[Rfam]
RNA sequence: GGCGAUAAACGCACCCAUAAUAAACGGCUCGGACCCGGGGGCGGUACCCGGCGACUCCACCAAUUCACCCUUUCAUUUGGGGCGUGUGGGGUCGAAACAGGAUCGACGAACGUCUAAAGGGGCCAGCUUUUGCUCGGUGAGGUACUACCGUUAUCGGUCCAAACGUACAGUUGCAAAUGACAACCGUGCUCCGGCAAUGGCUCUGGCUGCGUAA
Numbered sequence: 001g002g003c004g005a006u007a008a009a010c011g012c013a014c015c016c017a018u019a020a021u022a023a024a025c026g027g028c029u030c031g032g033a034c035c036c037g038g039g040g041g042c043g044g045u046a047c048c049c050g051g052c053g054a055c056u057c058c059a060c061c062a063a064u065u066c067a068c069c070c071u072u073u074c075a076u077u078u079g080g081g082g083c084g085u086g087u088g089g090g091g092u093c094g095a096a097a098c099a100g101g102a103u104c105g106a107c108g109a110a111c112g113u114c115u116a117a118a119g120g121g122g123c124c125a126g127c128u129u130u131u132g133c134u135c136g137g138u139g140a141g142g143u144a145c146u147a148c149c150g151u152u153a154u155c156g157g158u159c160c161a162a163a164c165g166u167a168c169a170g171u172u173g174c175a176a177a178u179g180a181c182a183a184c185c186g187u188g189c190u191c192c193g194g195c196a197a198u199g200g201c202u203c204u205g206g207c208u209g210c211g212u213a214a
Base pairs, nucleotide, nucleotide: 001134002133003132004131005130014122015121016120025112026111029109030108031107035051036050037049038048039047052094053093054092055091056090057089058088135150136149137148138147

The family of this 214-nucleotide sequence from Pseudorhodobacter sp. PARRP1 is "permuted transfer-messenger RNA". Pairs were carried over by alignment from the consensus structure, which is taken from published work. Its family is annotated with RNA catabolic process in the Gene Ontology. The family's RNA type in Rfam is non-coding RNA gene. The match comes from Rfam's covariance-model search (145 bits). Taxonomically the source falls in Pseudorhodobacter (Bacteria, Pseudomonadati, Pseudomonadota, Alphaproteobacteria).